[Rfam]
RNA sequence: AAAUAUAAGGAGCAAUAGCAAUCCUCUUGAUAUAAUAAGAAAUUGGCUAUUGCUCCUUUAU
Numbered sequence: 001a002a003a004u005a006u007a008a009g010g011a012g013c014a015a016u017a018g019c020a021a022u023c024c025u026c027u028u029g030a031u032a033u034a035a036u037a038a039g040a041a042a043u044u045g046g047c048u049a050u051u052g053c054u055c056c057u058u059u060a061u
Base pairs, nucleotide, nucleotide: 007058008057009056010055011054012053013052014051015050016049017048021044025040026039027038028037029036
Dot-bracket structure: ......(((((((((((...(...(((((......)))))...)...)))))))))))...